[Rfam]
mir-92 microRNA precursor family: an 80-nucleotide RNA from Cricetulus griseus. Taxonomically the source falls in Cricetulus (Eukaryota, Deuterostomia, Gnathostomata, Muroidea).

RNA sequence: AUUCAUCCCCGGGCGGGGAUUGGUGCCAUUACUUGCAUUAGAUAAAAGGUAUUGCACUUGUCCCGGCCUGUGGAAGAAAA
Numbered sequence: 001a002u003u004c005a006u007c008c009c010c011g012g013g014c015g016g017g018g019a020u021u022g023g024u025g026c027c028a029u030u031a032c033u034u035g036c037a038u039u040a041g042a043u044a045a046a047a048g049g050u051a052u053u054g055c056a057c058u059u060g061u062c063c064c065g066g067c068c069u070g071u072g073g074a075a076g077a078a079a080a
Base pairs, nucleotide, nucleotide: 004076006074010070011069012068013067014066016064017063018062019061020060022058023057024056027054028053030051031050032049033048034047
Annotation
On this family, see Houbaviy et al., Dev Cell 2003: "Embryonic stem cell-specific MicroRNAs". The family has 23 seed sequences and 1,347 matches in Rfam 15.1.